[Rfam]
Rfam assigns this 36-nucleotide RNA sequence to the family "DUF805b RNA".
RNA sequence: AGAGAAGAUGCCGAAAAUCUCAUCAAAGAGUAGGCA
Numbered sequence: 001a002g003a004g005a006a007g008a009u010g011c012c013g014a015a016a017a018u019c020u021c022a023u024c025a026a027a028g029a030g031u032a033g034g035c036a
Stems, first nucleotide, its partner, number of pairs: 002021004010035003

Pairs were carried over by alignment from the consensus structure, which is taken from published work.